[Rfam]
RNA sequence: GGGUGAGAUUAUGAUGAUUAAUUUGUUUCCCUAUUGGUUUGAUGGCCAAAAUGAUGGCACUUGUUGUAUUAGCUCUAUCUGAUCAUCC
Numbered sequence: 001g002g003g004u005g006a007g008a009u010u011a012u013g014a015u016g017a018u019u020a021a022u023u024u025g026u027u028u029c030c031c032u033a034u035u036g037g038u039u040u041g042a043u044g045g046c047c048a049a050a051a052u053g054a055u056g057g058c059a060c061u062u063g064u065u066g067u068a069u070u071a072g073c074u075c076u077a078u079c080u081g082a083u084c085a086u087c088c
Stems, first nucleotide, its partner, number of pairs: 002087004041060001045058003
Shown here is an 88-nucleotide sequence from Cocos nucifera, a member of the family "Small nucleolar RNA Z102/R77". The source organism's lineage runs through Eukaryota, Viridiplantae, Tracheophyta, Arecoideae and Cocos. Clan: SNORD44 clan. A search with the family's covariance model found it, with a score of 84 bits. Gene Ontology terms of the family: nucleolus and RNA processing. The family's RNA type in Rfam is C/D-box small nucleolar RNA.